[Rfam]
RNA: Listeria sRNA rli34
Organism: Listeria monocytogenes
RNA sequence: UAGAGAUAUUCUUACACAACGUGAGUAUCAUUAAGUUUUUUGGUCAUAAGAUAAUACUCAUUAUGAGUUACUAUUCACAUUUUAA
Numbered sequence: 001u002a003g004a005g006a007u008a009u010u011c012u013u014a015c016a017c018a019a020c021g022u023g024a025g026u027a028u029c030a031u032u033a034a035g036u037u038u039u040u041u042g043g044u045c046a047u048a049a050g051a052u053a054a055u056a057c058u059c060a061u062u063a064u065g066a067g068u069u070a071c072u073a074u075u076c077a078c079a080u081u082u083u084a085a
Base pairs, nucleotide, nucleotide: 006028007027008026009025010024011023064077065076066075067074